[Rfam]
RNA sequence: UAACUGUCUAGGGUAUAUCUCUGUCUAGUUAUGACAGAUUUAUAUCUGACUACUCAGAAUUACUCGUGAAAACUACAGUAUGAACAAUAACUUUUAAAGAU
Numbered sequence: 001u002a003a004c005u006g007u008c009u010a011g012g013g014u015a016u017a018u019c020u021c022u023g024u025c026u027a028g029u030u031a032u033g034a035c036a037g038a039u040u041u042a043u044a045u046c047u048g049a050c051u052a053c054u055c056a057g058a059a060u061u062a063c064u065c066g067u068g069a070a071a072a073c074u075a076c077a078g079u080a081u082g083a084a085c086a087a088u089a090a091c092u093u094u095u096a097a098a099g100a101u
Base pairs, nucleotide, nucleotide: 005100007097011093013091014090018086022080023079024078026075027074028073029072030071
Annotation:
MIR480 microRNA precursor family: a 101-nucleotide sequence from Populus trichocarpa. The organism belongs to Populus, within Eukaryota. The literature on the family includes a 2005 paper in Plant Cell by Lu et al., "Novel and mechanical stress-responsive MicroRNAs in Populus trichocarpa that are absent from Arabidopsis". Rfam links the family to the GO terms miRNA-mediated post-transcriptional gene silencing and RISC complex. Rfam 15.1 lists 3,070 matches to the family in 171 species.